[Rfam]
RNA sequence: AACAUUUGGUGGUGGCACGUUACAACAGUAGCGGGCUAGUUUGCGUUUAAAGAAAAAUAUUCUCAAGCCCGCAUUAUGCGGGCUUUUUUUU
Numbered sequence: 001a002a003c004a005u006u007u008g009g010u011g012g013u014g015g016c017a018c019g020u021u022a023c024a025a026c027a028g029u030a031g032c033g034g035g036c037u038a039g040u041u042u043g044c045g046u047u048u049a050a051a052g053a054a055a056a057a058u059a060u061u062c063u064c065a066a067g068c069c070c071g072c073a074u075u076a077u078g079c080g081g082g083c084u085u086u087u088u089u090u091u
Stems, first nucleotide, its partner, number of pairs: 009044004014037003018033001020031004066084007
The family of this 91-nucleotide RNA sequence from a Kangiellaceae bacterium is "Tryptophan operon leader". On this family, see Kolter and Yanofsky, Annu Rev Genet 1982: "Attenuation in amino acid biosynthetic operons". The family's RNA type in Rfam is cis-regulatory leader. It scores 43 bits against the family's covariance model. At least 6 amino acid operons are known to be regulated by attenuation. In each a leader sequence of 150-200 bp is found upstream of the first gene in the operon. This leader sequence can assume two different secondary structures known as the terminator and the anti-terminator structure. In each case the leader also codes for very short peptide sequence that is rich in the end product amino acid of the operon. The terminator structure is recognised as a termination signal for RNA polymerase and the operon is not transcribed. This structure forms when the cell has an excess of the regulatory amino acid and ribosome movement over the leader transcript is not impeded. When there is a deficiency of the charged tRNA of the regulatory amino acid the ribosome translating the leader peptide stalls and the antiterminator structure can form. This allows RNA polymerase to transcribe the operon. In the Rfam alignment the consensus structure is of the terminator structure.